RNA: Guanidine-II riboswitch aptamer (mini-ykkC)
RNA sequence: CGCGAUGGACGACCAUCAUGCGGAUCGCAUUUUGGCGGGACGACCUGC
Numbered sequence: 001c002g003c004g005a006u007g008g009a010c011g012a013c014c015a016u017c018a019u020g021c022g023g024a025u026c027g028c029a030u031u032u033u034g035g036c037g038g039g040a041c042g043a044c045c046u047g048c
Base pairs, nucleotide, nucleotide: 001020002019004017005016006015007014008013035048036047037046038045039044